[Rfam]
Record summary:
The family of this 34-nucleotide RNA sequence is "L31-Firmicutes ribosomal protein leader". By type it is a cis-regulatory leader. The family is grouped with related families in Rfam's "Ribosomal Protein L31 Leader clan". The sequence is in the family's curated seed alignment.
RNA sequence: CUUUGAUAUCGCUCGAGUAUCAAGGCGGAAGGAG
Numbered sequence: 001c002u003u004u005g006a007u008a009u010c011g012c013u014c015g016a017g018u019a020u021c022a023a024g025g026c027g028g029a030a031g032g033a034g
Stems, first nucleotide, its partner, number of pairs: 001025005009016002